[Rfam]
Nucleotides: 125
Stems, first nucleotide, its partner, number of pairs: 001125001003123006010116010021105004026100014041085007
Number, partner (000 for none) and nucleotide at each position: 001125g002000a003123a004122a005121u006120a007119u008118a009000a010116g011115a012114a013113u014112c015111c016110g017109u018108u019107u020000c021105u022104u023103a024102a025000c026100u027099u028098u029097u030096a031095a032094c033093u034092a035091a036090a037089a038088a039087a040000a041085c042084u043083a044082a045081g046080a047079a048000c049000c050000a051000g052000c053000u054000c055000u056000u057000a058000a059000a060000u061000a062000a063000g064000a065000u066000a067000u068000u069000u070000a071000a072000a073000a074000g075000c076000c077000g078000g079047u080046u081045c082044u083043u084042a085041g086000c087039u088038u089037u090036u091035u092034u093033a094032g095031u096030u097029a098028a099027a100026a101000u102024u103023u104022a105021a106000u107019a108018g109017a110016c111015g112014g113013g114012u115011u116010u117000a118008u119007a120006u121005a122004u123003u124000c125001c
Shown here is a 125-nucleotide RNA from Brassica napus, a member of the family "MIR9563 microRNA precursor family". The match comes from Rfam's covariance-model search (112 bits). The family's consensus secondary structure was predicted with RNAalifold. Lineage of the source: Eukaryota > Viridiplantae > Spermatophyta > eudicotyledons > Brassica. Rfam links the family to the GO terms miRNA-mediated post-transcriptional gene silencing and RISC complex.